[Rfam]
RNA sequence: CAACAAACUAGGUGAUGCAGACCGAAAAGCACAAGCCUUAGUGCCUGUUUGUUGUUUUGUUAAUAAGG
Numbered sequence: 001c002a003a004c005a006a007a008c009u010a011g012g013u014g015a016u017g018c019a020g021a022c023c024g025a026a027a028a029g030c031a032c033a034a035g036c037c038u039u040a041g042u043g044c045c046u047g048u049u050u051g052u053u054g055u056u057u058u059g060u061u062a063a064u065a066a067g068g
Stems, first nucleotide, its partner, number of pairs: 001054008011023003029044004036068005
This 68-nucleotide RNA belongs to the Rfam family "int-alpA RNA". Rfam's curators write: Acidobacteria (1 example), Planctomycetes (1 example), Proteobacteria.